RNA sequence: CCCUAGCCCCGAUUGAAGUGGAAAUCCUUUUUAAACGGCGCGAAGCAAAGUUAAAAAGAUUAGCUCACUUAACUCUUAUUUUCAGUAAGAGUUCGCUGAAUGCUGAAGCAUUUGCAACGGAAAGCGGGAAAAAGC
Numbered sequence: 001c002c003c004u005a006g007c008c009c010c011g012a013u014u015g016a017a018g019u020g021g022a023a024a025u026c027c028u029u030u031u032u033a034a035a036c037g038g039c040g041c042g043a044a045g046c047a048a049a050g051u052u053a054a055a056a057a058g059a060u061u062a063g064c065u066c067a068c069u070u071a072a073c074u075c076u077u078a079u080u081u082u083c084a085g086u087a088a089g090a091g092u093u094c095g096c097u098g099a100a101u102g103c104u105g106a107a108g109c110a111u112u113u114g115c116a117a118c119g120g121a122a123a124g125c126g127g128g129a130a131a132a133a134g135c
Base pairs, nucleotide, nucleotide: 009127010126011125013123014122018118019117023113024112029108030107031106032105033104
The record is a 135-nucleotide RNA from Flavobacterium pallidum, which matches "Flavo-1 RNA" in Rfam. By type it is a small RNA. The source organism's lineage runs through Bacteria, Pseudomonadati, Flavobacteriia, Flavobacteriaceae and Flavobacterium.